[Rfam]
RNA sequence: CUGGUUCCCAGUGCAGCUGCUGGCCACUGCACAAGAUUAGAGAUGAGACUCUUGUGCGUGUGACAGCGGCUAUAACGGGUUUCCACAUAUCGUCC
Numbered sequence: 001c002u003g004g005u006u007c008c009c010a011g012u013g014c015a016g017c018u019g020c021u022g023g024c025c026a027c028u029g030c031a032c033a034a035g036a037u038u039a040g041a042g043a044u045g046a047g048a049c050u051c052u053u054g055u056g057c058g059u060g061u062g063a064c065a066g067c068g069g070c071u072a073u074a075a076c077g078g079g080u081u082u083c084c085a086c087a088u089a090u091c092g093u094c095c
Base pairs, nucleotide, nucleotide: 007079008078009077012074015071016070017069018068019067020066021065022064024062025060026059028058029057030056031055032054033053035051036050
RNA: mir-210 microRNA precursor family
Organism: Neodiprion lecontei